Record summary: Shown here is a 79-nucleotide sequence from Medicago truncatula, a member of the family "MIR5269 microRNA precursor family". Lineage of the source: Eukaryota > Tracheophyta > eudicotyledons > Trifolieae > Medicago. Rfam 15.1 lists 389 matches to the family in 6 species.

Nucleotides: 079
Base pairs, nucleotide, nucleotide: 001079002078004076006074008072009071010070011069013067015065016064017062022057023056024055025053026052028050029049030048031047
Number, partner (000 for none) and nucleotide at each position: 001079u002078u003000a004076g005000u006074u007000u008072a009071a010070a011069u012000c013067a014000u015065u016064g017062a018000g019000a020000a021000u022057u023056u024055a025053c026052a027000c028050u029049u030048u031047a032000a033000a034000a035000a036000u037000u038000g039000a040000a041000c042000u043000u044000a045000c046000a047031u048030a049029a050028a051000a052026u053025g054000g055024u056023g057022g058000g059000a060000c061000a062017u063000a064016c065015a066000u067013u068000u069011a070010u071009u072008u073000c074006a075000u076004c077000c078002a079001a